[Rfam]
RNA sequence: UCUAGAACUCCAGAUAUGGGUAAACUUCUAAGUAGUGUUUGGGCUGGAUUACAGGACAGAUUCCGACUUCUCUUUUGUGGCCAAACGUAGAAUUUGAAAACGGCAGAUUUGGGUCUUACACUAUUCAUGAACAUUGUAGGCCUAUUUCGUAGCUUUCCAUC
Number, nucleotide and partner (000 for none) at each position: 001u000002c000003u159004a000005g157006a156007a155008c152009u151010c000011c000012a000013g148014a147015u000016a145017u144018g143019g142020g141021u138022a137023a000024a135025c000026u000027u133028c000029u000030a000031a000032g000033u000034a000035g128036u127037g126038u000039u000040u000041g124042g000043g122044c000045u120046g119047g000048a000049u000050u000051a000052c000053a117054g116055g115056a114057c113058a000059g110060a109061u000062u107063c106064c000065g104066a000067c103068u102069u000070c000071u000072c000073u097074u096075u000076u000077g093078u092079g000080g000081c000082c000083a000084a000085a000086c000087g000088u000089a000090g000091a000092a078093u077094u000095u000096g074097a073098a000099a000100a000101c000102g068103g067104c065105a000106g063107a062108u000109u060110u059111g000112g000113g057114u056115c055116u054117u053118a000119c046120a045121c000122u043123a000124u041125u000126c037127a036128u035129g000130a000131a000132c000133a027134u000135u024136g000137u022138a021139g000140g000141c020142c019143u018144a017145u016146u000147u014148c013149g000150u000151a009152g008153c000154u000155u007156u006157c005158c000159a003160u000161c000

MIR2912 microRNA precursor family: a 161-nucleotide sequence from Populus deltoides.
The organism belongs to Populus, within Eukaryota.
Gene Ontology terms of the family: RISC complex and miRNA-mediated post-transcriptional gene silencing.
The match comes from Rfam's covariance-model search (74 bits).